[Rfam]
A member of the RNA family "DUF805b RNA", 35 nucleotides long.
RNA sequence: UUGGCACAUUCCGAAAAGCCUAAACAGAGUAGGAA
Numbered sequence: 001u002u003g004g005c006a007c008a009u010u011c012c013g014a015a016a017a018g019c020c021u022a023a024a025c026a027g028a029g030u031a032g033g034a035a
Base pairs, nucleotide, nucleotide: 003020004019005018010034011033012032
Annotation:
Pairs were carried over by alignment from the consensus structure, which is taken from published work. By type it is a cis-regulatory element.